[Rfam]
RNA sequence: UGAUUACAGUGGAUCAAAGUCAGCAGCCCACUUGUGCUUGCACAAGAGUGGGGUGAUGACCUUGAGACACGCCCCCAACAUGAGCAUAAAAGUGUAGCGCAAGCUACACGAUAUGCGAAUGCUGGGGGAGGAUUGCGGGAGUGCGAAGCACGUAGCAAUCCGGUAAUCA
Numbered sequence: 001u002g003a004u005u006a007c008a009g010u011g012g013a014u015c016a017a018a019g020u021c022a023g024c025a026g027c028c029c030a031c032u033u034g035u036g037c038u039u040g041c042a043c044a045a046g047a048g049u050g051g052g053g054u055g056a057u058g059a060c061c062u063u064g065a066g067a068c069a070c071g072c073c074c075c076c077a078a079c080a081u082g083a084g085c086a087u088a089a090a091a092g093u094g095u096a097g098c099g100c101a102a103g104c105u106a107c108a109c110g111a112u113a114u115g116c117g118a119a120u121g122c123u124g125g126g127g128g129a130g131g132a133u134u135g136c137g138g139g140a141g142u143g144c145g146a147a148g149c150a151c152g153u154a155g156c157a158a159u160c161c162g163g164u165a166a167u168c169a
Base pairs, nucleotide, nucleotide: 001169002168003167004166005165006164007163010069011068017062019060020059021058022057024055025054027052028051029050030049031048032047033044034043035042036041073127074126075125076124078123079121080120081119084116085115086114087113092109093108094107095106096105097104098103130161131160132159133158134157135156136155141151142150143149144148
RNA: Clostridiales-1 RNA